Notes
This 112-nucleotide RNA from Photobacterium proteolyticum belongs to the Rfam family "Gammaprotebacteria rimP leader". The family's RNA type in Rfam is cis-regulatory leader.

RNA sequence: GCCAAGGCUGUGGCAAUCAGGGUCCAGUGAUAAAAAACCCCGUAAUUCGGGGUUUUUUAUUAUCUGAAAAAUGACCAUUCAGGUAUCUACUGGGCUUUAGUGCCCUUUUUUU
Numbered sequence: 001g002c003c004a005a006g007g008c009u010g011u012g013g014c015a016a017u018c019a020g021g022g023u024c025c026a027g028u029g030a031u032a033a034a035a036a037a038c039c040c041c042g043u044a045a046u047u048c049g050g051g052g053u054u055u056u057u058u059a060u061u062a063u064c065u066g067a068a069a070a071a072u073g074a075c076c077a078u079u080c081a082g083g084u085a086u087c088u089a090c091u092g093g094g095c096u097u098u099a100g101u102g103c104c105c106u107u108u109u110u111u112u
Stems, first nucleotide, its partner, number of pairs: 034056009092105004
The base pairs follow the family's consensus structure, which is taken from published work. NCBI's taxonomy places the organism under Bacteria, Pseudomonadota, Vibrionales, Vibrionaceae, Photobacterium. On this family, see Naville and Gautheret, Genome Biol 2010: "Premature terminator analysis sheds light on a hidden world of bacterial transcriptional attenuation".